RNA sequence: UUAGAGAUUUUGAACAUUUCAACUUGUAUACUUGGAGGAAUUGAAGACUUCAACUUGUAUACUUGGAGAAUUUGAAGACUUUAACC
Numbered sequence: 001u002u003a004g005a006g007a008u009u010u011u012g013a014a015c016a017u018u019u020c021a022a023c024u025u026g027u028a029u030a031c032u033u034g035g036a037g038g039a040a041u042u043g044a045a046g047a048c049u050u051c052a053a054c055u056u057g058u059a060u061a062c063u064u065g066g067a068g069a070a071u072u073u074g075a076a077g078a079c080u081u082u083a084a085c086c
Stems, first nucleotide, its partner, number of pairs: 001084006009076006017068005025059004032053006
The family of this 86-nucleotide RNA sequence from Solanum commersonii is "MIR8024 microRNA precursor family". The match comes from Rfam's covariance-model search (86 bits). Its family is annotated with miRNA-mediated post-transcriptional gene silencing and RISC complex in the Gene Ontology. Pairs were carried over by alignment from the consensus structure, which was predicted with RNAalifold. Lineage of the source: Eukaryota > eudicotyledons > Pentapetalae > Solanales > Solanum.